[Rfam]
RNA sequence: CUAGUUAUGGAGACAUGGUCCCAAAGACAAUUGCUGGGAAGAUCUUCGGCUCCAUCUGCUCCCUGAGUGGCGUGCUGGUGAUCGCCCUCCCUGUUCCUGUCAUUGUCUCCAAC
Numbered sequence: 001c002u003a004g005u006u007a008u009g010g011a012g013a014c015a016u017g018g019u020c021c022c023a024a025a026g027a028c029a030a031u032u033g034c035u036g037g038g039a040a041g042a043u044c045u046u047c048g049g050c051u052c053c054a055u056c057u058g059c060u061c062c063c064u065g066a067g068u069g070g071c072g073u074g075c076u077g078g079u080g081a082u083c084g085c086c087c088u089c090c091c092u093g094u095u096c097c098u099g100u101c102a103u104u105g106u107c108u109c110c111a112a113c
Stems, first nucleotide, its partner, number of pairs: 002112001004109001007106004012101004017096002020093001036076002039073001048062002
The family of this 113-nucleotide RNA sequence from Cynoglossus semilaevis is "Potassium channel RNA editing signal". Taxonomically the source falls in Cynoglossus (Eukaryota, Craniata, Actinopteri, Eurypterygia). Pairs were carried over by alignment from the consensus structure, which is taken from published work. This family represents a group of sequences related to the human potassium channel Kv1.1 hairpin element which directs the efficient modification of an adenosine to inosine by an adenosine deaminase acting on RNA (ADAR). The ADAR modification causes an isoleucine/valine recoding event which lies in the ion-conducting pore of the potassium channel. It is thought that this editing event targets the process of fast inactivation and allows a more rapid recovery from inactivation at negative potentials. It is annotated as a cis-regulatory element.